[Rfam]
RNA sequence: UACUGUUUAUGAUGAUUGAUUUAUAAAAAAACAAUGGGAAUCUCUCUGAAAAAGAUGAGGGAGAAUUUUUCAACUGAAACAGUG
Numbered sequence: 001u002a003c004u005g006u007u008u009a010u011g012a013u014g015a016u017u018g019a020u021u022u023a024u025a026a027a028a029a030a031a032c033a034a035u036g037g038g039a040a041u042c043u044c045u046c047u048g049a050a051a052a053a054g055a056u057g058a059g060g061g062a063g064a065a066u067u068u069u070u071c072a073a074c075u076g077a078a079a080c081a082g083u084g
Base pairs, nucleotide, nucleotide: 001084002083003082004081005080006079007078
Small nucleolar RNA SNORD79: an 84-nucleotide RNA from Anguilla anguilla. The match comes from Rfam's covariance-model search (78 bits). Its Rfam clan is "SNORD74 clan". NCBI's taxonomy places the organism under Eukaryota, Deuterostomia, Chordata, Actinopterygii, Anguilla. Rfam describes the family as follows. snoRNA U79 or Z22 is found in intron 7 of the gas5 gene in humans and is also present in mice.